[Rfam]
RNA sequence: UAGGGGAGACGGGGUUCGGACCCCCUCCCCGAGCCCAGGGUAACUUUGAAGGUGGAGGGGCA
Numbered sequence: 001u002a003g004g005g006g007a008g009a010c011g012g013g014g015u016u017c018g019g020a021c022c023c024c025c026u027c028c029c030c031g032a033g034c035c036c037a038g039g040g041u042a043a044c045u046u047u048g049a050a051g052g053u054g055g056a057g058g059g060g061c062a
Base pairs, nucleotide, nucleotide: 008041010039012036013035014034015033016031018029019028022060023059024058025057026056027055
Description
A member of the RNA family "Gag/pol translational readthrough site", 62 nucleotides long. Gene Ontology term of the family: viral translational readthrough. Rfam's curators put it in the seed alignment. On this family, see ten Dam et al., Virus Genes 1990: "RNA pseudoknots: translational frameshifting and readthrough on viral RNAs". Pairs were carried over by alignment from the consensus structure, which is taken from published work.